[Rfam]
RNA sequence: GUAAUUGAAUCUAUUUUGCCUAAGACUCAGGUGGCAUUUGCCUUAAUACCCUGCCGAGGAAGUUUAAAACUUUUCCGUGUUGUCUUCUGGCGCACGGAUUUCUUUUGCAAAA
Numbered sequence: 001g002u003a004a005u006u007g008a009a010u011c012u013a014u015u016u017u018g019c020c021u022a023a024g025a026c027u028c029a030g031g032u033g034g035c036a037u038u039u040g041c042c043u044u045a046a047u048a049c050c051c052u053g054c055c056g057a058g059g060a061a062g063u064u065u066a067a068a069a070c071u072u073u074u075c076c077g078u079g080u081u082g083u084c085u086u087c088u089g090g091c092g093c094a095c096g097g098a099u100u101u102c103u104u105u106u107g108c109a110a111a112a
Stems, first nucleotide, its partner, number of pairs: 028053004033042003075097006082091003

Ribosomal protein L10 leader: a 112-nucleotide RNA sequence from Leuconostoc fallax. Rfam links the family to the GO term regulation of gene expression. On this family, see Zengel and Lindahl, Prog Nucleic Acid Res Mol Biol 1994: "Diverse mechanisms for regulating ribosomal protein synthesis in Escherichia coli". The base pairs follow the family's consensus structure, which was predicted with CMfinder. From the family's description: This family is a putative r-protein leader autoregulatory structure found in B. subtilis and other low-GC Gram-positive bacteria. It is located in the 5' untranslated regions of mRNAs encoding ribosomal proteins L10 and L12 (rplJ-rplL). A Rho-independent transcription terminator structure that is probably involved in regulation is included at the 3' end. The match comes from Rfam's covariance-model search (60 bits).